[Rfam]
2dG-I riboswitch aptamer (M. florum): a 64-nucleotide RNA from Mesoplasma corruscae. Gene Ontology terms of the family: regulation of DNA-templated transcription, termination and deoxyribonucleoside binding. Lineage of the source: Bacteria > Bacillati > Mycoplasmatota > Entomoplasmatales > Mesoplasma.
RNA sequence: ACUUAUACAGGAUAACAUAACGGGUUAUUGACCCCGCCCCAGAACCAAUUCCGGGACUAUAAGG
Numbered sequence: 001a002c003u004u005a006u007a008c009a010g011g012a013u014a015a016c017a018u019a020a021c022g023g024g025u026u027a028u029u030g031a032c033c034c035c036g037c038c039c040c041a042g043a044a045c046c047a048a049u050u051c052c053g054g055g056a057c058u059a060u061a062a063g064g
Base pairs, nucleotide, nucleotide: 002063003062004061005060006059007058008036011029012028013027014026015025016024022046023045030037038055039054040053042051043050044049